[Rfam]
Nucleotides: 130
Stems, first nucleotide, its partner, number of pairs: 006025007026124004033104007041096007049088006057073004
Number, partner (000 for none) and nucleotide at each position: 001000u002000g003000a004000a005000a006025a007024c008023g009022u010021u011020u012019u013000a014000a015000a016000a017000u018000a019012g020011a021010a022009a023008c024007g025006u026124u027123c028122u029121u030000g031000a032000a033104u034103u035102u036101c037100g038099u039098u040000u041096a042095a043094g044093u045092g046091a047090a048000a049088a050087a051086g052085a053084a054083u055000u056000g057073c058072c059071a060070a061000a062000a063000u064000u065000u066000a067000g068000u069000u070060u071059u072058g073057g074000a075000a076000g077000g078000a079000g080000a081000u082000u083054a084053u085052u086051c087050u088049u089000c090047u091046u092045c093044a094043u095042u096041u097000c098039a099038a100037c101036g102035a103034a104033a105000a106000a107000u108000a109000u110000u111000u112000u113000a114000a115000a116000g117000g118000a119000g120000g121029a122028a123027g124026a125000a126000c127000a128000a129000g130000a